RNA sequence: AGACGACAUCAAGAGUUGAGCUCACUGCUCAACGCCAACCUGCCCCGAGCAAGGUGGCGUCCCAUCUGGGAGAUGUGGCCUGUCCGGCAACUUCGGGAAAAGCC
Numbered sequence: 001a002g003a004c005g006a007c008a009u010c011a012a013g014a015g016u017u018g019a020g021c022u023c024a025c026u027g028c029u030c031a032a033c034g035c036c037a038a039c040c041u042g043c044c045c046c047g048a049g050c051a052a053g054g055u056g057g058c059g060u061c062c063c064a065u066c067u068g069g070g071a072g073a074u075g076u077g078g079c080c081u082g083u084c085c086g087g088c089a090a091c092u093u094c095g096g097g098a099a100a101a102g103c104c
Base pairs, nucleotide, nucleotide: 006076007075008074009073010072015033016032017031018030019029020028034058035057036056039054040053041052042050043049046097078088079087080086
Dot-bracket structure: .....(((((....((((((.......))))))(((..(((((..[..)).))).))).............))))).(((.....)))........].......
A member of the RNA family "SAM-I/IV (S-adenosyl methionine) riboswitch aptamer" from Terriglobus albidus, 104 nucleotides long. A search with the family's covariance model found it, with a score of 44 bits. A reference for the family is Weinberg et al. (2008), "The aptamer core of SAM-IV riboswitches mimics the ligand-binding site of SAM-I riboswitches", RNA.